[Rfam]
RNA sequence: CUUACUGAGAGUUCUUUGGCAUUCUGUCCACCUCCUUGUCGAAUCCUCAGAGACAGAAAUCUCAUAUCUGUUGAUCUUGGAGGUGGGCAUACUGCCAAUGGAGCUGUGUAGG
Number, nucleotide and partner (000 for none) at each position: 001c000002u000003u000004a000005c000006u000007g000008a000009g000010a000011g000012u000013u102014c000015u000016u098017u097018g096019g095020c094021a093022u000023u000024c000025u089026g088027u087028c086029c085030a084031c083032c082033u081034c080035c079036u000037u000038g000039u000040c000041g000042a000043a000044u000045c000046c000047u000048c000049a000050g000051a000052g000053a000054c000055a000056g000057a000058a000059a000060u000061c000062u000063c000064a000065u000066a000067u000068c000069u000070g000071u000072u000073g000074a000075u000076c000077u000078u000079g035080g034081a033082g032083g031084u030085g029086g028087g027088c026089a025090u000091a000092c000093u021094g020095c019096c018097a017098a016099u000100g000101g000102a013103g000104c000105u000106g000107u000108g000109u000110a000111g000112g000
Rfam assigns this 112-nucleotide RNA from Oryza sativa to the family "MIR394 microRNA precursor family". Gene Ontology terms of the family: miRNA-mediated post-transcriptional gene silencing and RISC complex. Rfam's curators put it in the seed alignment.